Record summary:
The family of this 55-nucleotide RNA from Fimbriimonas ginsengisoli is "Acido-Lenti-1 RNA".

RNA sequence: CCCAGGGUUUCGCUUCGCUCCACCCUGGGCUGUAGGAUGUCGCGCCUUCAGCGCU
Numbered sequence: 001c002c003c004a005g006g007g008u009u010u011c012g013c014u015u016c017g018c019u020c021c022a023c024c025c026u027g028g029g030c031u032g033u034a035g036g037a038u039g040u041c042g043c044g045c046c047u048u049c050a051g052c053g054c055u
Base pairs, nucleotide, nucleotide: 001029002028003027004026005025006024007023008022042054043053044052045051
Dot-bracket structure: ((((((((.............))))))))............((((.....)))).
It scores 41 bits against the family's covariance model.